[Rfam]
RNA sequence: AUCUUUGCGCAGCGGCAGUAUCGUAGCCUAUGAGGUUUAUCCGAGGCGCGAUUAUUGCUAGUUGAAAACUUUACCCAAUACCCCGCCAUGAUGACUUGAAAUAUAGUCAGCAAUGGCAAUUUUUGGGAGUCUCCAAGGAGA
Numbered sequence: 001a002u003c004u005u006u007g008c009g010c011a012g013c014g015g016c017a018g019u020a021u022c023g024u025a026g027c028c029u030a031u032g033a034g035g036u037u038u039a040u041c042c043g044a045g046g047c048g049c050g051a052u053u054a055u056u057g058c059u060a061g062u063u064g065a066a067a068a069c070u071u072u073a074c075c076c077a078a079u080a081c082c083c084c085g086c087c088a089u090g091a092u093g094a095c096u097u098g099a100a101a102u103a104u105a106g107u108c109a110g111c112a113a114u115g116g117c118a119a120u121u122u123u124u125g126g127g128a129g130u131c132u133c134c135a136a137g138g139a140g141a
Base pairs, nucleotide, nucleotide: 020052021051022050023049024048026047027046028045034042035041085117086116087115089112090111092109093108094107095106096105130141131140132139133138
Background:
Shown here is a 141-nucleotide RNA from Merluccius polli, a member of the family "U4 spliceosomal RNA". U4 small nuclear RNA (U4 snRNA) is a component of the major U2-dependent spliceosome. By type it is a spliceosomal small nuclear RNA. The organism belongs to Merluccius, within Eukaryota. A reference for the family is Zwieb (1997), "The uRNA database", Nucleic Acids Res. Gene Ontology terms of the family: U4 snRNP and spliceosomal tri-snRNP complex assembly. The match comes from Rfam's covariance-model search (126 bits).